About this RNA:
A member of the RNA family "Small nucleolar RNA SNORA72" from Papio anubis, 131 nucleotides long.
RNA sequence: CUGUGAAUAUUCUCACUGUUUUGAUUUUAUAAUAGUAAGGACAAACUAAACAUUCACUAUAUUAAGACCAUGCAUGUGUCUUGGACCUACCUCCUUCCCUAGGUCUGUUUUUAUAAAUGCUGGUGAAAAAC
Numbered sequence: 001c002u003g004u005g006a007a008u009a010u011u012c013u014c015a016c017u018g019u020u021u022u023g024a025u026u027u028u029a030u031a032a033u034a035g036u037a038a039g040g041a042c043a044a045a046c047u048a049a050a051c052a053u054u055c056a057c058u059a060u061a062u063u064a065a066g067a068c069c070a071u072g073c074a075u076g077u078g079u080c081u082u083g084g085a086c087c088u089a090c091c092u093c094c095u096u097c098c099c100u101a102g103g104u105c106u107g108u109u110u111u112u113a114u115a116a117a118u119g120c121u122g123g124u125g126a127a128a129a130a131c
Stems, first nucleotide, its partner, number of pairs: 003057003017043006024036003067124004072120002082107008
Source information:
NCBI's taxonomy places the organism under Eukaryota, Deuterostomia, Chordata, Dipnotetrapodomorpha, Papio. The base pairs follow the family's consensus structure, which was predicted with PFOLD. It scores 116 bits against the family's covariance model. It is annotated as an H/ACA-box small nucleolar RNA. On this family, see Ganot et al., Genes Dev 1997: "The family of box ACA small nucleolar RNAs is defined by an evolutionarily conserved secondary structure and ubiquitous sequence elements essential for RNA accumulation". Rfam's curators write: U72 is a member of the H/ACA class of snoRNAs. The snoRNA gene is located in intron 4 of the ribosomal L30 protein gene in human, mouse and chicken.